[Rfam]
RNA sequence: ACAUUACAUUUGCUGAAUCCCGGAUUUUUCCGGGUACGGAGGAACCAAUUUAGGGGUUAAUCCAUGAACUGCAUGGUAGGGAUCCUUCUAUCCCGAACCCGACAGCUAACUUCGGAGGCAAUCAAGGAAGGAGUG
Number, nucleotide and partner (000 for none) at each position: 001a000002c000003a000004u000005u000006a000007c000008a000009u000010u000011u120012g119013c118014u117015g000016a000017a000018u000019c034020c033021c032022g031023g030024a000025u000026u000027u000028u000029u000030c023031c022032g021033g020034g019035u000036a000037c114038g113039g112040a111041g110042g000043a000044a000045c000046c053047a000048a000049u000050u000051u000052a000053g046054g100055g099056g098057u000058u000059a000060a000061u000062c076063c075064a074065u073066g000067a000068a000069c000070u000071g000072c000073a065074u064075g063076g062077u000078a000079g094080g093081g092082a091083u000084c000085c000086u000087u000088c000089u000090a000091u082092c081093c080094c079095g000096a000097a000098c056099c055100c054101g000102a000103c000104a000105g000106c000107u000108a000109a000110c041111u040112u039113c038114g037115g000116a000117g014118g013119c012120a011121a000122u000123c000124a000125a000126g000127g000128a000129a000130g000131g000132a000133g000134u000135g000
A member of the RNA family "c-di-AMP riboswitch aptamer (ydaO/yuaA leader)" from Geosporobacter ferrireducens, 135 nucleotides long.
Lineage of the source: Bacteria > Bacillati > Clostridia > Thermotaleaceae > Geosporobacter.
A search with the family's covariance model found it, with a score of 95 bits.